[Rfam]
Rfam assigns this 79-nucleotide RNA sequence from Ameiurus melas to the family "Small nucleolar RNA SNORD83". The base pairs follow the family's consensus structure, which was predicted with PFOLD.

RNA sequence: ACCACAUGAUGAUGUAUAUAGACAGCAUUAGCACUCUGUGCAAAGAUGACCUGGUAUCUAUCACCCGAGACUGAUGGUU
Numbered sequence: 001a002c003c004a005c006a007u008g009a010u011g012a013u014g015u016a017u018a019u020a021g022a023c024a025g026c027a028u029u030a031g032c033a034c035u036c037u038g039u040g041c042a043a044a045g046a047u048g049a050c051c052u053g054g055u056a057u058c059u060a061u062c063a064c065c066c067g068a069g070a071c072u073g074a075u076g077g078u079u
Stems, first nucleotide, its partner, number of pairs: 001078004031041004